[Rfam]
RNA: MIR5070 microRNA precursor family
RNA sequence: GAGGGUACCCUUUGAACCUGCCUAGUUCAACAAAAUGAACUAAAAAUUUAAAAUAACAUCACUUUUUGAAAAACUAGUUCAUUUGUUUGAACUAAGGAGCGUCAGAGGGUACCCUG
Numbered sequence: 001g002a003g004g005g006u007a008c009c010c011u012u013u014g015a016a017c018c019u020g021c022c023u024a025g026u027u028c029a030a031c032a033a034a035a036u037g038a039a040c041u042a043a044a045a046a047u048u049u050a051a052a053a054u055a056a057c058a059u060c061a062c063u064u065u066u067u068g069a070a071a072a073a074c075u076a077g078u079u080c081a082u083u084u085g086u087u088u089g090a091a092c093u094a095a096g097g098a099g100c101g102u103c104a105g106a107g108g109g110u111a112c113c114c115u116g
Base pairs, nucleotide, nucleotide: 002115003114004113005112006111007110008109009108010107011106012105013104014103015102018099019098021096023094024093025092026091027090028089029088030087033084034083035082036081037080038079039078040077041076042075